[Rfam]
RNA sequence: AAUCCCUGUGAAGAUCUUGUAUUGGAAAUAAAAGUAGUGGCCUGAUACACAUUGAUGAUAUAUUAUUCCGAGGGAUU
Numbered sequence: 001a002a003u004c005c006c007u008g009u010g011a012a013g014a015u016c017u018u019g020u021a022u023u024g025g026a027a028a029u030a031a032a033a034g035u036a037g038u039g040g041c042c043u044g045a046u047a048c049a050c051a052u053u054g055a056u057g058a059u060a061u062a063u064u065a066u067u068c069c070g071a072g073g074g075a076u077u
Stems, first nucleotide, its partner, number of pairs: 001077006
RNA: Small nucleolar RNA R21
Organism: Striga hermonthica